Shown here is a 77-nucleotide sequence from Acipenser ruthenus, a member of the family "mir-190 microRNA precursor family".

RNA sequence: GGUUCUGUCUGAUAUGUUUGAUAUUAGGUUGUUUUAUUCAAAAUCCAACUAAAUAUCAGACAUAUUCCUACAGCACC
Numbered sequence: 001g002g003u004u005c006u007g008u009c010u011g012a013u014a015u016g017u018u019u020g021a022u023a024u025u026a027g028g029u030u031g032u033u034u035u036a037u038u039c040a041a042a043a044u045c046c047a048a049c050u051a052a053a054u055a056u057c058a059g060a061c062a063u064a065u066u067c068c069u070a071c072a073g074c075a076c077c
Stems, first nucleotide, its partner, number of pairs: 005073004011066015027050005
Dot-bracket structure: ....((((..(((((((((((((((.(((((..............))))).)))))))))))))))...))))....
Overview
The match comes from Rfam's covariance-model search (78 bits). A reference for the family is Kloosterman et al. (2006), "Cloning and expression of new microRNAs from zebrafish", Nucleic Acids Res. The organism belongs to Acipenser, within Eukaryota. Rfam 15.1 lists 1,667 matches to the family in 854 species.